RNA sequence: GGAUUACGACCGUUCAUUUUCCAGACGGGGACGGAGGAACCACCACCGGCGCCUUAGUGCGCCUUGGGGUGAAGCACGCUCAACAAACUUAGGCCUGUGCGGCUAUGUGUUGAGCGGGCCGGGCAGACCCCUCGCCCGAAUCCGACAGCUAACUUCGUCGGCGUCGAGAGGAUCU
Numbered sequence: 001g002g003a004u005u006a007c008g009a010c011c012g013u014u015c016a017u018u019u020u021c022c023a024g025a026c027g028g029g030g031a032c033g034g035a036g037g038a039a040c041c042a043c044c045a046c047c048g049g050c051g052c053c054u055u056a057g058u059g060c061g062c063c064u065u066g067g068g069g070u071g072a073a074g075c076a077c078g079c080u081c082a083a084c085a086a087a088c089u090u091a092g093g094c095c096u097g098u099g100c101g102g103c104u105a106u107g108u109g110u111u112g113a114g115c116g117g118g119c120c121g122g123g124c125a126g127a128c129c130c131c132u133c134g135c136c137c138g139a140a141u142c143c144g145a146c147a148g149c150u151a152a153c154u155u156c157g158u159c160g161g162c163g164u165c166g167a168g169a170g171g172a173u174c175u
Stems, first nucleotide, its partner, number of pairs: 010161002015030001017028001031158006041066002067143003075118001077116009121137004
The record is a 175-nucleotide RNA sequence from Arthrobacter glacialis, which matches "c-di-AMP riboswitch aptamer (ydaO/yuaA leader)" in Rfam. It scores 58 bits against the family's covariance model.